Rfam assigns this 71-nucleotide RNA sequence from Papilio machaon to the family "tRNA". It is annotated as a transfer RNA. The match comes from Rfam's covariance-model search (56 bits).
[Rfam]
RNA sequence: GGCUCGUUAGCUUAGCGGUUAGAGCAACCAUCGCAGAAUGGUAGUCGGGGGUUCAAAUCCCUCACGAGCCA
Numbered sequence: 001g002g003c004u005c006g007u008u009a010g011c012u013u014a015g016c017g018g019u020u021a022g023a024g025c026a027a028c029c030a031u032c033g034c035a036g037a038a039u040g041g042u043a044g045u046c047g048g049g050g051g052u053u054c055a056a057a058u059c060c061c062u063c064a065c066g067a068g069c070c071a
Base pairs, nucleotide, nucleotide: 001070002069003068004067005066006065007064010025011024012023013022027042028041029040030039031038047063048062049061050060051059
Dot-bracket structure: (((((((..((((........)))).(((((......)))))....(((((.......)))))))))))).